[Rfam]
RNA sequence: UGCAGGUGAUGUGAAGAGUAUUUGCCGUCUGAGUGAUGGUGAGGACGCUCCUAACCACCAAGAUCGCUGAUGCA
Numbered sequence: 001u002g003c004a005g006g007u008g009a010u011g012u013g014a015a016g017a018g019u020a021u022u023u024g025c026c027g028u029c030u031g032a033g034u035g036a037u038g039g040u041g042a043g044g045a046c047g048c049u050c051c052u053a054a055c056c057a058c059c060a061a062g063a064u065c066g067c068u069g070a071u072g073c074a
Stems, first nucleotide, its partner, number of pairs: 001074004
This 74-nucleotide RNA from Panthera leo belongs to the Rfam family "Small nucleolar RNA SNORD24". Rfam links the family to the GO terms RNA processing and nucleolus. Taxonomically the source falls in Panthera (Eukaryota, Teleostomi, Tetrapoda, Boreoeutheria). Pairs were carried over by alignment from the consensus structure, which was predicted with PFOLD. The family's RNA type in Rfam is C/D-box small nucleolar RNA. A reference for the family is Qu et al. (1995), "U24, a novel intron-encoded small nucleolar RNA with two 12 nt long, phylogenetically conserved complementarities to 28S rRNA", Nucleic Acids Res.